The family of this 368-nucleotide sequence from Photobacterium ganghwense is "transfer-messenger RNA". The match comes from Rfam's covariance-model search (262 bits). Clan: tRNA clan. The family's RNA type in Rfam is non-coding RNA gene. Rfam's curators write: Bacterial tmRNA, also known as 10Sa RNA or SsrA, is named for its dual tRNA and mRNA-like properties. Its role is to liberate the mRNA from a stalled ribosome. Rfam links the family to the GO term RNA catabolic process.
Nucleotides: 368
Base pairs, nucleotide, nucleotide: 001364002363003362004361005360006359007358021337022336023335024334025333026332027331028330033325034324035323036322038320039319040318041317043315044311045310046309047308048307049067050066051065052064053063054080055079056078057077058076059075060074113136114135115134116132117131118130119129140183141182142181143180144179145178147172148171149170150169153166154165155164159198160197161196162195163194203232204231205230215249217247220244252287253286254285257282258281259280260279261278263276264275265274267303268302269301270300272298273297341357342356343355344354345353
Number, partner (000 for none) and nucleotide at each position: 001364g002363g003362g004361g005360c006359u007358g008000a009000u010000u011000u012000a013000g014000g015000a016000u017000u018000c019000g020000a021337c022336a023335g024334g025333a026332u027331c028330a029000c030000g031000a032000c033325g034324g035323c036322u037000u038320g039319u040318g041317g042000a043315g044311c045310a046309u047308g048307c049067c050066g051065a052064g053063g054080u055079g056078c057077g058076g059075u060074u061000u062000g063053c064052c065051u066050c067049g068000u069000u070000a071000a072000a073000a074060a075059g076058c077057c078056g079055c080054a081000a082000a083000a084000a085000a086000a087000u088000a089000g090000u091000c092000g093000c094000a095000a096000a097000c098000g099000a100000c101000g102000a103000a104000a105000a106000c107000u108000a109000c110000g111000c112000a113136c114135u115134a116132g117131c118130a119129g120000c121000u122000u123000a124000a125000u126000a127000c128000c129119c130118u131117g132116c133000u134115u135114a136113g137000a138000g139000c140183c141182u142181a143180c144179c145178c146000u147172c148171c149170c150169u151000a152000g153166c154165c155164u156000u157000a158000g159198c160197u161196c162195g163194u164155a165154g166153g167000a168000c169150g170149g171148g172147g173000a174000u175000c176000a177000a178145g179144g180143g181142u182141a183140g184000u185000c186000a187000a188000a189000c190000c191000c192000a193000a194163a195162c196161g197160a198159g199000a200000u201000c202000g203232c204231g205230u206000g207000g208000a209000u210000g211000a212000u213000u214000u215249g216000a217247c218000c219000u220244g221000g222000g223000a224000u225000c226000u227000g228000a229000a230205g231204c232203g233000u234000u235000a236000a237000a238000c239000c240000u241000g242000a243000u244220u245000c246000a247217g248000g249215u250000g251000u252287g253286u254285c255000u256000u257282u258281g259280u260279g261278u262000g263276g264275c265274g266000u267303g268302u269301c270300u271000u272298u273297c274265c275264g276263c277000a278261g279260c280259a281258c282257a283000c284000u285254g286253a287252c288000g289000a290000g291000a292000u293000u294000a295000a296000a297273g298272a299000c300270a301269g302268a303267c304000u305000a306000a307048g308047c309046a310045u311044g312000u313000a314000g315043c316000g317041c318040c319039a320038u321000u322036a323035g324034u325033u326000a327000g328000a329000c330028u331027g332026g333025u334024u335023u336022u337021g338000g339000a340000c341357g342356c343355g344354g345353g346000u347000u348000c349000a350000a351000c352000u353345c354344c355343c356342g357341c358007c359006a360005g361004c362003u363002c364001c365000a366000c367000c368000a